[Rfam]
RNA: Streptococcus sRNA SpF59 (ldcC RNA)
RNA sequence: UGACCAGCAAUAUGCUAAAGGCUACACGGACGGCCGGGUCAGAUGCCGA
Numbered sequence: 001u002g003a004c005c006a007g008c009a010a011u012a013u014g015c016u017a018a019a020g021g022c023u024a025c026a027c028g029g030a031c032g033g034c035c036g037g038g039u040c041a042g043a044u045g046c047c048g049a
Stems, first nucleotide, its partner, number of pairs: 001041005006016003